[Rfam]
RNA sequence: GGCCACUUUAGUCUGUGGUUACUGUAUUAGGUAUUGUUAUAACAAUCUGGAUGGUUUUUAUGAAUAAGACAUUACUGGUCUCUUCUUUA
Numbered sequence: 001g002g003c004c005a006c007u008u009u010a011g012u013c014u015g016u017g018g019u020u021a022c023u024g025u026a027u028u029a030g031g032u033a034u035u036g037u038u039a040u041a042a043c044a045a046u047c048u049g050g051a052u053g054g055u056u057u058u059u060a061u062g063a064a065u066a067a068g069a070c071a072u073u074a075c076u077g078g079u080c081u082c083u084u085c086u087u088u089a
Stems, first nucleotide, its partner, number of pairs: 001020006030076004035071002037063006044056004
Shown here is an 89-nucleotide RNA from Yersinia pseudotuberculosis, a member of the family "AilA 5' UTR thermometer". Lineage of the source: Bacteria > Pseudomonadota > Yersiniaceae > Yersinia > Yersinia pseudotuberculosis. Pairs were carried over by alignment from the consensus structure. Rfam's curators put it in the seed alignment.